[Rfam]
Nucleotides: 054
Stems, first nucleotide, its partner, number of pairs: 001039005007033002011028003
Number, partner (000 for none) and nucleotide at each position: 001039c002038a003037u004036g005035c006000g007033g008032u009000g010000u011028c012027a013026g014000u015000c016000u017000a018000a019000u020000a021000a022000g023000a024000a025000c026013u027012u028011g029000a030000u031000a032008g033007c034000g035005g036004c037003a038002u039001g040000g041000c042000u043000u044000c045000a046000a047000a048000u049000u050000g051000a052000g053000g054000u